[Rfam]
RNA sequence: UGACAGUUGUUCCAUUUGUUAAAUAUUCCAAUUGUUUAACAGUGUUUUUAGGCUGUCACAGAGGAUAAGUGACCAUCUUCACCCUGUAUUUUAUGAGUUGGAAAAAAUACUGGUUUUGCAAGGUCAUACAAUU
Number, nucleotide and partner (000 for none) at each position: 001u058002g057003a056004c055005a054006g053007u052008u051009g000010u000011u000012c000013c000014a045015u044016u042017u041018g040019u000020u038021a037022a036023a035024u000025a000026u000027u000028c000029c000030a000031a000032u000033u000034g000035u023036u022037u021038a020039a000040c018041a017042g016043u000044g015045u014046u000047u000048u000049u000050a000051g008052g007053c006054u005055g004056u003057c002058a001059c000060a000061g000062a000063g000064g000065a000066u000067a000068a000069g000070u000071g125072a124073c123074c122075a000076u120077c000078u000079u000080c000081a000082c000083c113084c112085u000086g110087u109088a108089u107090u106091u105092u104093a000094u000095g000096a000097g000098u000099u000100g000101g000102a000103a000104a092105a091106a090107a089108u088109a087110c086111u000112g084113g083114u000115u000116u000117u000118g000119c000120a076121a000122g074123g073124u072125c071126a000127u000128a000129c000130a000131a000132u000133u000
Small nucleolar RNA SNORA79: a 133-nucleotide RNA sequence from Diabrotica balteata.
The base pairs follow the family's consensus structure, which was predicted with RNAalifold.
From the family's description: ACA65 (SNORA79) is a member of the H/ACA class of snoRNAs that guide the sites of modification of uridines to pseudouridines.
It is annotated as an H/ACA-box small nucleolar RNA.
The literature on the family includes a 2006 paper in RNA by Schattner et al., "A computational screen for mammalian pseudouridylation guide H/ACA RNAs".
Taxonomically the source falls in Diabrotica (Eukaryota, Pancrustacea, Polyphaga, Chrysomeloidea).